Record summary: The family of this 225-nucleotide sequence from Miscanthus lutarioriparius is "MIR6217 microRNA precursor family".
RNA sequence: UGGUUACAAAAUAACUUAUUCUGUAGUCACUUUAAGUUACGAUAAUUACUAUGUUAAUUUACGAGAUUAUAGUACCUCAUUACUAAGUGAUUUACUAUAACGUUAUGAUAAAUAUCCUCAUAUGUUAUAAUCCAACUAUCGUAAAUAUGUAUUGAUAUUAUCGUAAAUUAGUAUAUAAUAUUAUCGUAAAUGGAGGUGGCUACAAAAUAACUUAUUUUGUAGCUG
Numbered sequence: 001u002g003g004u005u006a007c008a009a010a011a012u013a014a015c016u017u018a019u020u021c022u023g024u025a026g027u028c029a030c031u032u033u034a035a036g037u038u039a040c041g042a043u044a045a046u047u048a049c050u051a052u053g054u055u056a057a058u059u060u061a062c063g064a065g066a067u068u069a070u071a072g073u074a075c076c077u078c079a080u081u082a083c084u085a086a087g088u089g090a091u092u093u094a095c096u097a098u099a100a101c102g103u104u105a106u107g108a109u110a111a112a113u114a115u116c117c118u119c120a121u122a123u124g125u126u127a128u129a130a131u132c133c134a135a136c137u138a139u140c141g142u143a144a145a146u147a148u149g150u151a152u153u154g155a156u157a158u159u160a161u162c163g164u165a166a167a168u169u170a171g172u173a174u175a176u177a178a179u180a181u182u183a184u185c186g187u188a189a190a191u192g193g194a195g196g197u198g199g200c201u202a203c204a205a206a207a208u209a210a211c212u213u214a215u216u217u218u219g220u221a222g223c224u225g
Base pairs, nucleotide, nucleotide: 001225002224003223004222005221006220007219008218009217010216011215012214013213014212016210017209018208019207020206022204023203024202025201026200027199028198029197030196031195032194033193037189038188039187040186041185042184043183044182045181046180050175051174052173053172054171055170056169057168058167059166060165061164062163065162066161067160069158070157071156074152080144081143082142083141087139088138089137091135092134096129097128098127099126100125101124102123103122107117
Rfam links the family to the GO terms RISC complex and miRNA-mediated post-transcriptional gene silencing.